[Rfam]
RNA sequence: UCCAUCGUGAGGUGGAAUCUGAAGGAAGUCGGCAGCAGAAUUCCGGGCUGAUGAACAAAAACCACAUAUGAGGUUGACUUGGAGUGGACGAAUUUGUACAUCAAAACGAAAUCCAACACUGCUUGAGCUCCGAGCAUUAAAAGUGGCGGGUAUAUGGGAGGAAAGUUAUCGUU
Numbered sequence: 001u002c003c004a005u006c007g008u009g010a011g012g013u014g015g016a017a018u019c020u021g022a023a024g025g026a027a028g029u030c031g032g033c034a035g036c037a038g039a040a041u042u043c044c045g046g047g048c049u050g051a052u053g054a055a056c057a058a059a060a061a062c063c064a065c066a067u068a069u070g071a072g073g074u075u076g077a078c079u080u081g082g083a084g085u086g087g088a089c090g091a092a093u094u095u096g097u098a099c100a101u102c103a104a105a106a107c108g109a110a111a112u113c114c115a116a117c118a119c120u121g122c123u124u125g126a127g128c129u130c131c132g133a134g135c136a137u138u139a140a141a142a143g144u145g146g147c148g149g150g151u152a153u154a155u156g157g158g159a160g161g162a163a164a165g166u167u168a169u170c171g172u173u
Base pairs, nucleotide, nucleotide: 001016002015003014004013005012006011028173030171031170032169035166036165041159042158043157044156045155046151048149049148050147062146063145064144065143067141073138075136078134079133080132081131082130083129084128086114087113088112093106094105095104
RNA: Group II catalytic intron D1-D4-3